mir-9193 microRNA precursor family: a 75-nucleotide RNA from Cnephaeus nilssonii. Rfam links the family to the GO terms RISC complex and miRNA-mediated post-transcriptional gene silencing. Rfam 15.1 lists 6,008 matches to the family in 8 species. It scores 59 bits against the family's covariance model.
[Rfam]
Nucleotides: 075
Base pairs, nucleotide, nucleotide: 004072006070008068009067010066013064016061017060018059019058020057021056022055024053028049029048031046032045034043035042
Number, partner (000 for none) and nucleotide at each position: 001000u002000u003000c004072g005000g006070a007000g008068u009067g010066g011000g012000g013064g014000u015000a016061g017060u018059c019058c020057c021056u022055c023000a024053g025000c026000c027000c028049g029048g030000a031046u032045u033000a034043c035042g036000a037000g038000a039000g040000g041000g042035u043034g044000c045032a046031g047000g048029c049028c050000a051000a052000c053024c054000c055022g056021a057020g058019g059018g060017a061016c062000c063000c064013c065000a066010c067009c068008a069000g070006u071000g072004c073000a074000u075000g